[Rfam]
RNA sequence: AAGUUUUUAAAAGCGCCAGGGCUAUUCGUUGAACGUAAAAACGAAUAGUUGACGAGGAAGAGGUUGAUCGAGCACUCGGCGGAUGCCUCUCGGUUGUUUUCACCACAACCGCAAGUUUUAGCCGAAAACAACGAGGUGACUCGUUGGACAAAAGCUAAAACAAUGGUGAAC
Numbered sequence: 001a002a003g004u005u006u007u008u009a010a011a012a013g014c015g016c017c018a019g020g021g022c023u024a025u026u027c028g029u030u031g032a033a034c035g036u037a038a039a040a041a042c043g044a045a046u047a048g049u050u051g052a053c054g055a056g057g058a059a060g061a062g063g064u065u066g067a068u069c070g071a072g073c074a075c076u077c078g079g080c081g082g083a084u085g086c087c088u089c090u091c092g093g094u095u096g097u098u099u100u101c102a103c104c105a106c107a108a109c110c111g112c113a114a115g116u117u118u119u120a121g122c123c124g125a126a127a128a129c130a131a132c133g134a135g136g137u138g139a140c141u142c143g144u145u146g147g148a149c150a151a152a153a154g155c156u157a158a159a160a161c162a163a164u165g166g167u168g169a170a171c
Stems, first nucleotide, its partner, number of pairs: 020050008029041001059090005068079004091111006115161007129146007